[Rfam]
RNA sequence: GGCCUUCCUCUGCUGGGCGAUCGAUCAUGGAGACCCUCAUCGAUCGCCCCACAGAGGGAGGCC
Numbered sequence: 001g002g003c004c005u006u007c008c009u010c011u012g013c014u015g016g017g018c019g020a021u022c023g024a025u026c027a028u029g030g031a032g033a034c035c036c037u038c039a040u041c042g043a044u045c046g047c048c049c050c051a052c053a054g055a056g057g058g059a060g061g062c063c
Stems, first nucleotide, its partner, number of pairs: 001063012015049011027037001029035002
RNA: mir-9242 microRNA precursor family
Organism: Myotis lucifugus